RNA sequence: CAAACGGUUUUCUAGGGUUCCGCAGCGUAUUCGCUGGACUGGUCCGAGAGAAAACGCACAACAACGGUUGUGUACACGGAGGGACAAAAGCCCGGGAGGA
Numbered sequence: 001c002a003a004a005c006g007g008u009u010u011u012c013u014a015g016g017g018u019u020c021c022g023c024a025g026c027g028u029a030u031u032c033g034c035u036g037g038a039c040u041g042g043u044c045c046g047a048g049a050g051a052a053a054a055c056g057c058a059c060a061a062c063a064a065c066g067g068u069u070g071u072g073u074a075c076a077c078g079g080a081g082g083g084a085c086a087a088a089a090g091c092c093c094g095g096g097a098g099g100a
Stems, first nucleotide, its partner, number of pairs: 007055006015045002020042002022039001023036005056073007075095001077098001081093003
Shown here is a 100-nucleotide RNA sequence from Desmospora activa, a member of the family "Guanidine-I riboswitch aptamer". Rfam links the family to the GO term regulation of gene expression. The base pairs follow the family's consensus structure. From the family's description: This family represents a conserved RNA structure found upstream of the ykkC and yxkD genes in Bacillus subtilis and related genes in other bacteria. The function of this family is unclear although it has been suggested that it may function to switch on efflux pumps and detoxification systems in response to harmful environmental molecules.